[Rfam]
RNA: S10-Clostridia ribosomal protein leader
Organism: Pseudobacteroides cellulosolvens
RNA sequence: UGACAUACGAUGAAACUGGAGAUUGCUGCUCAAAUGAAGCAGGUAACUUCAGCGGAGAAUGUCCGAUUCAUGAAACCGGGCGACAA
Numbered sequence: 001u002g003a004c005a006u007a008c009g010a011u012g013a014a015a016c017u018g019g020a021g022a023u024u025g026c027u028g029c030u031c032a033a034a035u036g037a038a039g040c041a042g043g044u045a046a047c048u049u050c051a052g053c054g055g056a057g058a059a060u061g062u063c064c065g066a067u068u069c070a071u072g073a074a075a076c077c078g079g080g081c082g083a084c085a086a
Base pairs, nucleotide, nucleotide: 016052017051019050020049021048026042027041028040029039030038060085061084062083063082067080068079069078